THF (Tetrahydrofolate) riboswitch aptamer: a 106-nucleotide RNA sequence from Carnobacterium maltaromaticum. Tetrahydrofolate (THF) riboswitch was first reported for Ames et al. as an RNA motif in 5' untranslated (5'-UTR)regions of folate transport and biosynthesis genes in Firmicutes genomes. The literature on the family includes a 2014 paper in Chem Biol by Trausch and Batey, "A disconnect between high-affinity binding and efficient regulation by antifolates and purines in the tetrahydrofolate riboswitch".

[Rfam]
RNA sequence: AACAGAGUAGGGAAUAAAGCGUUAAGUGCUAGAAGGAUGGGAUGUUGCCUUUUGGACGAAAAGCUAUCUUUGGAUAGUUUGCGGUUUUAUUCUUGCAUUCGCUGCA
Numbered sequence: 001a002a003c004a005g006a007g008u009a010g011g012g013a014a015u016a017a018a019g020c021g022u023u024a025a026g027u028g029c030u031a032g033a034a035g036g037a038u039g040g041g042a043u044g045u046u047g048c049c050u051u052u053u054g055g056a057c058g059a060a061a062a063g064c065u066a067u068c069u070u071u072g073g074a075u076a077g078u079u080u081g082c083g084g085u086u087u088u089a090u091u092c093u094u095g096c097a098u099u100c101g102c103u104g105c106a
Base pairs, nucleotide, nucleotide: 003104004103005102010094011093012092013091014090015089016088017087018086019085020083021082022081026057027056029055030054031053032052033051034050035049036048040100041099042098043097044096061080062079063078064077065076066075067074